[Rfam]
RNA sequence: AUGCAGGAUAGAGGCGCAACCUUCAAUAUUAGCGCGGGGAGGGCUCCGGAUAGGCCCCUUGAACCGAUUGCGAAAGGGACGGUUGCCGAAGAGCGGGCGAUACCGGGGUCGUCUUCUCUGGGUGCCGUGUGAACAGCCCGGCAACUGUCAUCAGGGUUUGAUGGAGAGCUAUCUGCUUU
Number, nucleotide and partner (000 for none) at each position: 001a000002u000003g000004c000005a000006g174007g173008a172009u171010a170011g169012a000013g000014g000015c000016g086017c085018a084019a083020c082021c081022u000023u079024c078025a000026a000027u000028a000029u000030u000031a000032g071033c070034g069035c066036g065037g064038g000039g000040a000041g000042g000043g000044c000045u000046c000047c000048g000049g000050a000051u000052a000053g000054g000055c000056c000057c000058c000059u000060u000061g000062a000063a000064c037065c036066g035067a000068u000069u034070g033071c032072g000073a000074a000075a000076g000077g000078g024079a023080c000081g021082g020083u019084u018085g017086c016087c000088g000089a000090a119091g118092a117093g116094c000095g114096g113097g112098c111099g110100a109101u108102a000103c000104c000105g000106g000107g000108g101109u100110c099111g098112u097113c096114u095115u000116c093117u092118c091119u090120g146121g145122g000123u143124g142125c141126c140127g139128u000129g137130u136131g000132a000133a000134c000135a000136g130137c129138c000139c127140g126141g125142c124143a123144a000145c121146u120147g000148u164149c163150a162151u161152c160153a159154g158155g000156g000157u000158u154159u153160g152161a151162u150163g149164g148165a000166g000167a000168g000169c011170u010171a009172u008173c007174u006175g000176c000177u000178u000179u000
Shown here is a 179-nucleotide RNA sequence from Papillibacter cinnamivorans, a member of the family "Lysine riboswitch aptamer". Pairs were carried over by alignment from the consensus structure, which is taken from published work. Taxonomically the source falls in Papillibacter cinnamivorans (Bacteria, Bacillota, Oscillospiraceae, Papillibacter). Rfam describes the family as follows. Riboswitches are metabolite binding domains within certain messenger RNAs that serve as precision sensors for their corresponding targets.